[Rfam]
A member of the RNA family "Ribosomal protein L20 leader" from Desulforamulus profundi, 131 nucleotides long. The base pairs follow the family's consensus structure, which was predicted with CMfinder. By type it is a cis-regulatory leader. This family is a putative r-protein leader autoregulatory structure found in B. subtilis and other low-GC Gram-positive bacteria. It is located in the 5' untranslated regions of mRNAs encoding initiation factor 3 followed by ribosomal proteins L35 and L20 (infC-rpmI-rplT). A Rho-independent transcription terminator structure that is probably involved in regulation is included at the 3' end. Rfam links the family to the GO term regulation of gene expression.

RNA sequence: UGUUUUAAGAAGAAGCAUCCGCUUCUCACCUUACAACCGUGGUUCGUAAGGUUAUGAGGUUUAUUACAAUAGGUCUACCUUAUUGUAUUGCGUCUCUAAGCGGGUGAUUUCACCCGCUUUUAUUAUUCUAU
Dot-bracket structure: ..........((((((....)))))).(((..((.((....))..))..)))..............................................((((((((....)))))))).............